[Rfam]
RNA sequence: AAGGAGCAAUAACUUCUUCUUGUUCUAGCAAGGGGGGUUAUUGCUCCUUAUAUUUC
Numbered sequence: 001a002a003g004g005a006g007c008a009a010u011a012a013c014u015u016c017u018u019c020u021u022g023u024u025c026u027a028g029c030a031a032g033g034g035g036g037g038u039u040a041u042u043g044c045u046c047c048u049u050a051u052a053u054u055u056c
Stems, first nucleotide, its partner, number of pairs: 001049012013036003018033005